c-di-GMP-I riboswitch aptamer: a 95-nucleotide RNA from Clostridiales bacterium PH28_bin88. Rfam links the family to the GO term cyclic-di-GMP binding. The source organism's lineage runs through Bacteria, Bacillati, Bacillota, Clostridia and Eubacteriales. A reference for the family is Weinberg et al. (2007), "Identification of 22 candidate structured RNAs in bacteria using the CMfinder comparative genomics pipeline", Nucleic Acids Res.
[Rfam]
RNA sequence: UCGCGUCAAGGGCAAGCUCCCCGAAAGGGGAUGCGCGCAAAGCCAUGGGUCUGCCGUUUGGCGGUUCGUCAAACAAUGAUUGCCAGGCUGCCGAG
Number, nucleotide and partner (000 for none) at each position: 001u000002c000003g000004c000005g000006u000007c000008a000009a000010g000011g000012g038013c037014a000015a000016g000017c033018u031019c030020c029021c028022c027023g000024a000025a000026a000027g022028g021029g020030g019031a018032u000033g017034c000035g000036c000037g013038c012039a000040a000041a089042g088043c087044c086045a000046u085047g084048g083049g080050u079051c078052u000053g000054c000055c000056g074057u073058u072059u071060g070061g069062c068063g000064g000065u000066u000067c000068g062069u061070c060071a059072a058073a057074c056075a000076a000077u000078g051079a050080u049081u000082g000083c048084c047085a046086g044087g043088c042089u041090g000091c000092c000093g000094a000095g000

Its Rfam clan is "c-di-GMP_I riboswitch clan".